[Rfam]
RNA sequence: UGUUGGGUUCUAGAUGUUAUGAUGACGAGCUGGUCGGGCUCCGCACGGGUUUGGUCGCCCGGGGAUGGAGAUAUGGAAAGGGUCUCGUGUGCUGUUAGUCAGUCGAAAGACGUGCUUGCAACAUGGGCCUAUAACCAGAUAAGUCAUAGCAAUACUAGCCAACA
Number, nucleotide and partner (000 for none) at each position: 001u164002g163003u162004u161005g160006g159007g000008u000009u000010c158011u157012a156013g155014a000015u151016g150017u149018u148019a147020u146021g145022a144023u143024g000025a000026c000027g136028a000029g135030c000031u133032g000033g000034u076035c075036g074037g000038g000039c070040u069041c068042c067043g066044c000045a000046c061047g060048g059049g058050u057051u000052u000053g000054g000055u000056c000057g050058c049059c048060c047061g046062g000063g000064g000065a000066u043067g042068g041069a040070g039071a000072u000073a000074u036075g035076g034077a000078a000079a000080g130081g129082g128083u127084c126085u000086c125087g124088u123089g122090u121091g000092c000093u120094g119095u118096u000097a116098g115099u000100c114101a113102g111103u110104c109105g000106a000107a000108a000109g104110a103111c102112g000113u101114g100115c098116u097117u000118g095119c094120a093121a090122c089123a088124u087125g086126g084127g083128c082129c081130u080131a000132u000133a031134a000135c029136c027137a000138g000139a000140u000141a000142a000143g023144u022145c021146a020147u019148a018149g017150c016151a015152a000153u000154a000155c013156u012157a011158g010159c006160c005161a004162a003163c002164a001
Shown here is a 164-nucleotide RNA from Tombusvirus cynarae, a member of the family "Tombusvirus 3' cap-independent translation element". The family's RNA type in Rfam is cis-regulatory element. The literature on the family includes a 2013 paper in J Virol by Nicholson et al., "Tombusvirus Y-shaped translational enhancer forms a complex with eIF4F and can be functionally replaced by heterologous translational enhancers". It is one of the family's seed sequences.